[Rfam]
RNA sequence: AUAUUUUCUGGCGAUGGAGUCCGCCAUUAACCGUCCGAGCACAUCGGACUGAUGACUCCUACCCAAGA
Number, nucleotide and partner (000 for none) at each position: 001a000002u000003a000004u000005u000006u000007u000008c000009u000010g025011g024012c023013g022014a000015u000016g059017g058018a057019g056020u055021c054022c013023g012024c011025c010026a000027u000028u000029a000030a000031c000032c000033g049034u048035c047036c046037g045038a044039g000040c000041a000042c000043a000044u038045c037046g036047g035048a034049c033050u000051g000052a000053u000054g021055a020056c019057u018058c017059c016060u000061a000062c000063c000064c000065a000066a000067g000068a000

Rfam assigns this 68-nucleotide RNA from bacterium HR07 to the family "Fluoride riboswitch aptamer (crcB RNA motif)".